[Rfam]
RNA sequence: ACGCAGAGUAGAAGCGUUCAGCCCGGCCCCGUCCGCGGUGGGAAAUUGCUCUUUCA
Numbered sequence: 001a002c003g004c005a006g007a008g009u010a011g012a013a014g015c016g017u018u019c020a021g022c023c024c025g026g027c028c029c030c031g032u033c034c035g036c037g038g039u040g041g042g043a044a045a046u047u048g049c050u051c052u053u054u055c056a
Stems, first nucleotide, its partner, number of pairs: 005052006015041001018043002021039003024035003
RNA: Xanthine riboswitch aptamer (NMT1 RNA)
Organism: Variovorax sp. Sphag1AA